[Rfam]
Record summary: The record is a 175-nucleotide sequence from Oryza rufipogon, which matches "MIR807 microRNA precursor family" in Rfam. On this family, see Luo et al., FEBS Lett 2006: "Rice embryogenic calli express a unique set of microRNAs, suggesting regulatory roles of microRNAs in plant post-embryogenic development". Gene Ontology terms of the family: miRNA-mediated post-transcriptional gene silencing and RISC complex. NCBI's taxonomy places the organism under Eukaryota, Poales, Oryzoideae, Oryzeae, Oryza.
RNA sequence: AAACACACUAUCAAUGAAUGGAUUCACCGCGAGAUGAUGUGACUAUUUCACCUAGGAUGAGGACAUGGCAUCCUAUUACCAGCCAUCGCACGAAAUUAAUAGGAUGCCAUGUCCUUAUCCUAGAUGGAGCGACCACAUCAUCUCGCGGGUGAAUCCAUUCAUCGAUAGUGUGUUU
Numbered sequence: 001a002a003a004c005a006c007a008c009u010a011u012c013a014a015u016g017a018a019u020g021g022a023u024u025c026a027c028c029g030c031g032a033g034a035u036g037a038u039g040u041g042a043c044u045a046u047u048u049c050a051c052c053u054a055g056g057a058u059g060a061g062g063a064c065a066u067g068g069c070a071u072c073c074u075a076u077u078a079c080c081a082g083c084c085a086u087c088g089c090a091c092g093a094a095a096u097u098a099a100u101a102g103g104a105u106g107c108c109a110u111g112u113c114c115u116u117a118u119c120c121u122a123g124a125u126g127g128a129g130c131g132a133c134c135a136c137a138u139c140a141u142c143u144c145g146c147g148g149g150u151g152a153a154u155c156c157a158u159u160c161a162u163c164g165a166u167a168g169u170g171u172g173u174u175u
Base pairs, nucleotide, nucleotide: 001175002174003173004172005171006170007169009167010166011165012164014162015161017159018158019157021155022154023153024152025151026150027149028148029146030145031144032143034141035140036139037138038137040135041134044131046129047128050125053122054121056119057118062113063112064111068107069106070105071104072103073102074101075100076099077098078097085096086095